[Rfam]
Nucleotides: 074
Stems, first nucleotide, its partner, number of pairs: 001073005
Number, partner (000 for none) and nucleotide at each position: 001073c002072c003071u004070g005069a006000u007000c008000u009000a010000u011000g012000a013000u014000g015000a016000g017000u018000c019000u020000u021000u022000u023000c024000a025000u026000u027000u028000a029000u030000u031000g032000g033000a034000c035000a036000u037000a038000u039000u040000g041000g042000a043000u044000g045000a046000g047000a048000u049000a050000u051000g052000c053000g054000g055000a056000u057000a058000u059000g060000g061000g062000a063000c064000u065000g066000a067000g068000a069005u070004c071003a072002g073001g074000u